[Rfam]
RNA: Small nucleolar RNA SNORA13
Organism: Hymenochirus boettgeri
RNA sequence: AGCCUUUGUGUUACCCUUUCAUUUUAUUAAGUAGUGACUGUGGUGUCAAACAAGGCAUAAAAUAUUCUCCAAAAAACCUCUGCCAGUGGGUAAGCCCAUUUGGCAUAUGGUUUUGUGGAAACACUU
Numbered sequence: 001a002g003c004c005u006u007u008g009u010g011u012u013a014c015c016c017u018u019u020c021a022u023u024u025u026a027u028u029a030a031g032u033a034g035u036g037a038c039u040g041u042g043g044u045g046u047c048a049a050a051c052a053a054g055g056c057a058u059a060a061a062a063u064a065u066u067c068u069c070c071a072a073a074a075a076a077c078c079u080c081u082g083c084c085a086g087u088g089g090g091u092a093a094g095c096c097c098a099u100u101u102g103g104c105a106u107a108u109g110g111u112u113u114u115g116u117g118g119a120a121a122c123a124c125u126u
Base pairs, nucleotide, nucleotide: 002056003055004054005053006052009048010047012045013044014043015042016040019037020036021035022034023033068119069118070117071116072114073113074112075111077109082104083103084102087098088097